[Rfam]
RNA sequence: ACUACCGGCUACUCUAUCGCGGUUCCGGUUUCGGCCGGAAAUGAGGAAAGUCCGGACAACGUAGAGCACCGCACUACCUAACGGGUAGGCUGCAUUCCGGGAACGGAAUGUGGACAGCCAGUGUCACAGAAAGCUAGACCGCCCCGGCCUUCGGGUUGGGGUAAGGGUGAAAACGUGCGGGCCAUUUGGCCUUAAUGUAAGAGCGCACGCCGCGGCGGGGUGACCCGUCGGGGGGAUAAACCUUGCGGGUUGAAAUGCCACGCACAUCCCGGGGCCUGCGGGCCGCUGAGUUGCUCGCUCAGUUUUUCCCUCGGGAAUGCCGGGAGGGGUAGGCAGAUAGAUCCGGUUCGUAAGGACCGGACUAGAUAAAUGAUAGAGGCUCCGCCUGGCGGAGAACAGAAUCCGGCUUAUCGGCCGGUGGUGGAG
Numbered sequence: 001a002c003u004a005c006c007g008g009c010u011a012c013u014c015u016a017u018c019g020c021g022g023u024u025c026c027g028g029u030u031u032c033g034g035c036c037g038g039a040a041a042u043g044a045g046g047a048a049a050g051u052c053c054g055g056a057c058a059a060c061g062u063a064g065a066g067c068a069c070c071g072c073a074c075u076a077c078c079u080a081a082c083g084g085g086u087a088g089g090c091u092g093c094a095u096u097c098c099g100g101g102a103a104c105g106g107a108a109u110g111u112g113g114a115c116a117g118c119c120a121g122u123g124u125c126a127c128a129g130a131a132a133g134c135u136a137g138a139c140c141g142c143c144c145c146g147g148c149c150u151u152c153g154g155g156u157u158g159g160g161g162u163a164a165g166g167g168u169g170a171a172a173a174c175g176u177g178c179g180g181g182c183c184a185u186u187u188g189g190c191c192u193u194a195a196u197g198u199a200a201g202a203g204c205g206c207a208c209g210c211c212g213c214g215g216c217g218g219g220g221u222g223a224c225c226c227g228u229c230g231g232g233g234g235g236a237u238a239a240a241c242c243u244u245g246c247g248g249g250u251u252g253a254a255a256u257g258c259c260a261c262g263c264a265c266a267u268c269c270c271g272g273g274g275c276c277u278g279c280g281g282g283c284c285g286c287u288g289a290g291u292u293g294c295u296c297g298c299u300c301a302g303u304u305u306u307u308c309c310c311u312c313g314g315g316a317a318u319g320c321c322g323g324g325a326g327g328g329g330u331a332g333g334c335a336g337a338u339a340g341a342u343c344c345g346g347u348u349c350g351u352a353a354g355g356a357c358c359g360g361a362c363u364a365g366a367u368a369a370a371u372g373a374u375a376g377a378g379g380c381u382c383c384g385c386c387u388g389g390c391g392g393a394g395a396a397c398a399g400a401a402u403c404c405g406g407c408u409u410a411u412c413g414g415c416c417g418g419u420g421g422u423g424g425a426g
Stems, first nucleotide, its partner, number of pairs: 001422010011411001012378007020043002023040006048409003052406005057252004064312003069248005074088005089115001090113010116243002121241002123237003139166002141162009174209006211233001213230007256335004267325005304316004342361008
A member of the RNA family "Bacterial RNase P class A" from Flavilitoribacter nigricans, 426 nucleotides long. The match comes from Rfam's covariance-model search (214 bits).